[Rfam]
RNA sequence: AUAGAUGGGCUUUAAACGAUUCGUAUAUCCUCAAAAAUACGGUUUGAGGGUCUCUACAAGGAACCACAAAUUCCUGGCUACGAACGGGUGCUUGCGCAUA
Dot-bracket structure: ...................((((((...(((((((.......))))))).........(((((.......)))))...))))))................